Shown here is a 103-nucleotide RNA from Coffea canephora, a member of the family "Small nucleolar RNA Z43". Lineage of the source: Eukaryota > Spermatophyta > Magnoliopsida > Rubiaceae > Coffea. Pairs were carried over by alignment from the consensus structure, which was predicted with PFOLD. The match comes from Rfam's covariance-model search (91 bits).
[Rfam]
RNA sequence: GGACAGUGAUGAAUAAAUCAUAUUGGUCUCGUUCGGCGUAAUGGUGUUCAAUGCGAAUACCUUGCCGACCAUCCUGAUAUAUCACCACCCAUAAACUGAGUCC
Number, nucleotide and partner (000 for none) at each position: 001g103002g102003a101004c100005a000006g000007u000008g000009a000010u000011g000012a000013a000014u000015a000016a000017a000018u000019c000020a000021u000022a000023u000024u000025g000026g000027u000028c000029u000030c000031g000032u000033u000034c000035g000036g000037c000038g000039u000040a000041a000042u000043g000044g000045u000046g000047u000048u000049c000050a058051a000052u000053g000054c000055g000056a000057a000058u050059a000060c000061c000062u000063u000064g000065c000066c000067g000068a000069c000070c000071a000072u000073c000074c000075u000076g000077a000078u000079a000080u000081a000082u000083c000084a000085c000086c000087a000088c000089c000090c000091a000092u000093a000094a000095a000096c000097u000098g000099a000100g004101u003102c002103c001